[Rfam]
A member of the RNA family "MIR6152 microRNA precursor family" from Nicotiana sylvestris, 106 nucleotides long. Lineage of the source: Eukaryota > Embryophyta > Spermatophyta > asterids > Nicotiana. A search with the family's covariance model found it, with a score of 66 bits. Its family is annotated with RISC complex and miRNA-mediated post-transcriptional gene silencing in the Gene Ontology.
RNA sequence: UGGACAAAUUAUUGUAUUCCACUGUAUUCGACUAUAUUCAAGGCGUGAAGUAGGGGAUUACACUGAUUUUAAACGGAAAGUGUAUCAAUUAAUGUAAUAGACUCCU
Numbered sequence: 001u002g003g004a005c006a007a008a009u010u011a012u013u014g015u016a017u018u019c020c021a022c023u024g025u026a027u028u029c030g031a032c033u034a035u036a037u038u039c040a041a042g043g044c045g046u047g048a049a050g051u052a053g054g055g056g057a058u059u060a061c062a063c064u065g066a067u068u069u070u071a072a073a074c075g076g077a078a079a080g081u082g083u084a085u086c087a088a089u090u091a092a093u094g095u096a097a098u099a100g101a102c103u104c105c106u
Stems, first nucleotide, its partner, number of pairs: 002105003009100007017092002021089001023087002036085002039082002044075003047069003051065003